Shown here is a 139-nucleotide RNA sequence from Triticum aestivum, a member of the family "Small nucleolar RNA Z247".

RNA sequence: CCCAUCCAGGACGACGAGCUGAUCUCCUAUAUUCUUCACGGGCUGGACAUGGAUUACCAGUCCCUCGUCUCGGUCCUCGAUGCCCGCGUCAUGCCUGUCACCCUCGACGAGCUCUUUGCCAUGCUCAAAAACUUCGAUC
Numbered sequence: 001c002c003c004a005u006c007c008a009g010g011a012c013g014a015c016g017a018g019c020u021g022a023u024c025u026c027c028u029a030u031a032u033u034c035u036u037c038a039c040g041g042g043c044u045g046g047a048c049a050u051g052g053a054u055u056a057c058c059a060g061u062c063c064c065u066c067g068u069c070u071c072g073g074u075c076c077u078c079g080a081u082g083c084c085c086g087c088g089u090c091a092u093g094c095c096u097g098u099c100a101c102c103c104u105c106g107a108c109g110a111g112c113u114c115u116u117u118g119c120c121a122u123g124c125u126c127a128a129a130a131a132c133u134u135c136g137a138u139c
Stems, first nucleotide, its partner, number of pairs: 004138003008134001088108003093103001

It scores 42 bits against the family's covariance model.
Gene Ontology terms of the family: nucleolus and RNA processing.
A reference for the family is Chen et al. (2003), "The high diversity of snoRNAs in plants: identification and comparative study of 120 snoRNA genes from Oryza sativa", Nucleic Acids Res.
The family has 8 seed sequences and 7,071 matches in Rfam 15.1.
Lineage of the source: Eukaryota > Magnoliopsida > Petrosaviidae > Poales > Triticum.